[Rfam]
RNA sequence: CCUUCCGAAACAUGUCGCAGCAUGGCCUGACUGGAGAUAGUCGGCGGAGUAGAGCACUGAAUGGGGAACCCGGGGAAGAAAUUCCUCGAUCCCCUCUCAAACUCCAAAACCGCCGUCGUCGUAGAAAGUCGGAGUCCGGGCUACGGGGUAAGCCUGUAGUCCGUGAGGGAGACAACCCAGACCAUGGUUAAGGUCCCCAAGUGUCGGCUAAGUGUCAACACUAAAGGGUGUCCUAAGCCCAAGACAGCUGGAAGGUGAGCUUAGAAGCAGCUAUCCUCUAAGGAGUGCGUAACAGCCCACCAGUCGAGGUUUAGGGCCCCGAAAAUGGACGGGGCUCAAGCCGACCACCGAUACCAUGGAACACAGCAAUGUGAUUUUAUAGGAAGGCAAUCCGUUUGGGCAGAAGUAGGGCCGUGAGGUCCUGUGGACCAUUCGGAUAUGAAAAU
Numbered sequence: 001c002c003u004u005c006c007g008a009a010a011c012a013u014g015u016c017g018c019a020g021c022a023u024g025g026c027c028u029g030a031c032u033g034g035a036g037a038u039a040g041u042c043g044g045c046g047g048a049g050u051a052g053a054g055c056a057c058u059g060a061a062u063g064g065g066g067a068a069c070c071c072g073g074g075g076a077a078g079a080a081a082u083u084c085c086u087c088g089a090u091c092c093c094c095u096c097u098c099a100a101a102c103u104c105c106a107a108a109a110c111c112g113c114c115g116u117c118g119u120c121g122u123a124g125a126a127a128g129u130c131g132g133a134g135u136c137c138g139g140g141c142u143a144c145g146g147g148g149u150a151a152g153c154c155u156g157u158a159g160u161c162c163g164u165g166a167g168g169g170a171g172a173c174a175a176c177c178c179a180g181a182c183c184a185u186g187g188u189u190a191a192g193g194u195c196c197c198c199a200a201g202u203g204u205c206g207g208c209u210a211a212g213u214g215u216c217a218a219c220a221c222u223a224a225a226g227g228g229u230g231u232c233c234u235a236a237g238c239c240c241a242a243g244a245c246a247g248c249u250g251g252a253a254g255g256u257g258a259g260c261u262u263a264g265a266a267g268c269a270g271c272u273a274u275c276c277u278c279u280a281a282g283g284a285g286u287g288c289g290u291a292a293c294a295g296c297c298c299a300c301c302a303g304u305c306g307a308g309g310u311u312u313a314g315g316g317c318c319c320c321g322a323a324a325a326u327g328g329a330c331g332g333g334g335c336u337c338a339a340g341c342c343g344a345c346c347a348c349c350g351a352u353a354c355c356a357u358g359g360a361a362c363a364c365a366g367c368a369a370u371g372u373g374a375u376u377u378u379a380u381a382g383g384a385a386g387g388c389a390a391u392c393c394g395u396u397u398g399g400g401c402a403g404a405a406g407u408a409g410g411g412c413c414g415u416g417a418g419g420u421c422c423u424g425u426g427g428a429c430c431a432u433u434c435g436g437a438u439a440u441g442a443a444a445a446u
Base pairs, nucleotide, nucleotide: 001387002386003385004384005383006382011024012023013022014021015020026134027132028131029130030129031128032127036120037119038118040117042115043114044113045112046111047110052105053103054102059098060097063094064093065092066091067090072087073086074085075084076083077082138162139161140160141159142158143157144156145155146154167178168177169176182359183358184357185356186355187354188353192349193348194347201346203345204344205343206342207341208340226320227319228318230317231316232315233314234313235312236311237310238309239308247304248303249302250301251300253277254276255275258272259271260270278282283298287296288295360377361376362373363372364371365370388441390438391437392436393435394434397431398430399429406425407424408423409422410421411420412419413418
RNA: Archaeal large subunit ribosomal RNA, nucleotides 928 to 1373
Organism: uncultured archaeon